[Rfam]
RNA sequence: UUUAGAACUCGAGAUAUAGGUUGAACACUGAACAGUGUCUAGGCUGCAAGACAGAUUCGGACUUCUCCGUUGUUACUAUAAUUUAGACUUGAAAAAAUCCUUCUUAGAUCUUGGUCUCCACAUGAAAGUUGUAGGCCUAUGUCUUAAUGAAUCUGUA
Dot-bracket structure: ..((((..(.(((((((((((((.(.(((.....(((....((....((((..((...((..(........(((...........)))........).))...))...))))....))..)))...)))).))).))))))))))).....))))..
The family of this 157-nucleotide RNA sequence from Populus tomentosa is "MIR2912 microRNA precursor family". The match comes from Rfam's covariance-model search (95 bits). The source organism's lineage runs through Eukaryota, eudicotyledons, Pentapetalae, fabids and Populus. Rfam links the family to the GO terms miRNA-mediated post-transcriptional gene silencing and RISC complex. Rfam 15.1 lists 15,051 matches to the family in 15 species.